[Rfam]
RNA sequence: UUGUUCCCGAUUUGAUUGUUGCUCAGAAAGCCGUGAAUUGAACGUCGACUUUCGGGCAUCAAUCAAAACGGGAGGCG
Numbered sequence: 001u002u003g004u005u006c007c008c009g010a011u012u013u014g015a016u017u018g019u020u021g022c023u024c025a026g027a028a029a030g031c032c033g034u035g036a037a038u039u040g041a042a043c044g045u046c047g048a049c050u051u052u053c054g055g056g057c058a059u060c061a062a063u064c065a066a067a068a069c070g071g072g073a074g075g076c077g
Stems, first nucleotide, its partner, number of pairs: 001077001004074002011067006018060001020058005026053005032047001
The family of this 77-nucleotide sequence from Petromyzon marinus is "mir-315 microRNA precursor family". Lineage of the source: Eukaryota > Opisthokonta > Eumetazoa > Hyperoartia > Petromyzon. The family's consensus secondary structure was predicted with RNAalifold. For this family Rfam cites "Systematic discovery and characterization of fly microRNAs using 12 Drosophila genomes" (Stark et al., Genome Res, 2007).